Overview
The family of this 138-nucleotide sequence from Chrysemys picta is "Small nucleolar RNA SNORA75". The match comes from Rfam's covariance-model search (83 bits). By type it is an H/ACA-box small nucleolar RNA.

RNA sequence: CCCUUCUCAAUGAGCUCCUUCCUGCCGUAAAAUCAGUGGCAGCCUAUGGAUUCGCACGAGAAGAAAAUUAAGUGCUCAGUGCUGGCAUAUUCACCUUCUGGCUUUAGAUGAGUGAUUAGCCAAGGCUGUGGGACACUG
Number, nucleotide and partner (000 for none) at each position: 001c000002c000003c063004u062005u061006c060007u059008c058009a000010a000011u000012g000013a000014g055015c054016u050017c049018c048019u000020u000021c000022c042023u041024g040025c039026c038027g037028u036029a000030a000031a000032a000033u000034c000035a000036g028037u027038g026039g025040c024041a023042g022043c000044c000045u000046a000047u000048g018049g017050a016051u000052u000053c000054g015055c014056a000057c000058g008059a007060g006061a005062a004063g003064a000065a000066a000067a000068u000069u000070a000071a000072g000073u000074g000075c130076u000077c128078a127079g126080u000081g000082c000083u000084g000085g000086c000087a000088u000089a000090u000091u000092c000093a000094c000095c112096u111097u110098c000099u108100g000101g000102c000103u000104u000105u000106a000107g000108a099109u000110g097111a096112g095113u000114g000115a000116u000117u000118a000119g000120c000121c000122a000123a000124g000125g000126c079127u078128g077129u000130g075131g000132g000133a000134c000135a000136c000137u000138g000

The source organism's lineage runs through Eukaryota, Opisthokonta, Sauria, Cryptodira and Chrysemys picta.
Rfam's curators write: U23 belongs to the H/ACA class of snoRNAs. snoRNAs bind a number of proteins (including dyskerin, Gar1p and Nop10p in the case of the H/ACA class) to form snoRNP complexes. This class are thought to guide the sites of modification of uridines to pseudouridines by forming direct base pairing interactions with substrate RNAs. Targets include ribosomal and spliceosomal RNAs as well as the Trypanosoma spliced leader RNA (SL RNA) as possibly other, still unknown cellular RNAs. U23 can direct the pseudouridylation of U97 in human 18S rRNA (Bachellerie JP, Ganot, P unpublished data).